[Rfam]
RNA sequence: CCGUGCUAGAUGGGGAGUCAGCGGUGCCCUGUAACCUGCAAUCCGCUAUAGCAGGAUUGAAUUCCUUGCUUAGGCUGCUGCUUGUGAGGCCUGACCCAUAUAAGUGGCGUUGAUAACUGGGUCCCACGCAAUGAAAACUCAUGAAAUCCGUCAGAUCCGGAAGGAAGCAGCGGUAAGUGAAUCUUUUCAUGUGCCGUGGAUCAACCUGGUUUGAGCUAACUGUAUGGGUAACGCUUAUAGGCUGAUAGACGAAGCAAGGUGCACGG
Numbered sequence: 001c002c003g004u005g006c007u008a009g010a011u012g013g014g015g016a017g018u019c020a021g022c023g024g025u026g027c028c029c030u031g032u033a034a035c036c037u038g039c040a041a042u043c044c045g046c047u048a049u050a051g052c053a054g055g056a057u058u059g060a061a062u063u064c065c066u067u068g069c070u071u072a073g074g075c076u077g078c079u080g081c082u083u084g085u086g087a088g089g090c091c092u093g094a095c096c097c098a099u100a101u102a103a104g105u106g107g108c109g110u111u112g113a114u115a116a117c118u119g120g121g122u123c124c125c126a127c128g129c130a131a132u133g134a135a136a137a138c139u140c141a142u143g144a145a146a147u148c149c150g151u152c153a154g155a156u157c158c159g160g161a162a163g164g165a166a167g168c169a170g171c172g173g174u175a176a177g178u179g180a181a182u183c184u185u186u187u188c189a190u191g192u193g194c195c196g197u198g199g200a201u202c203a204a205c206c207u208g209g210u211u212u213g214a215g216c217u218a219a220c221u222g223u224a225u226g227g228g229u230a231a232c233g234c235u236u237a238u239a240g241g242c243u244g245a246u247a248g249a250c251g252a253a254g255c256a257a258g259g260u261g262c263a264c265g266g
Base pairs, nucleotide, nucleotide: 001266002265003264004263005262006261009058010057011056012030013029014028015027017025018024019023035055036054037053038052039051064259065258066257067256068255069254070253073250075248076247077246080242081241082240083239084238085237086236087235088234092230093229096227097226098225099224100223101222104220105219106217107216108215115211116210117209118208119207120206121205122204124199125198126197127196128195129191130190132189133188134187135186136185137182139180140179141178142177148173149172150171151170156165157164158163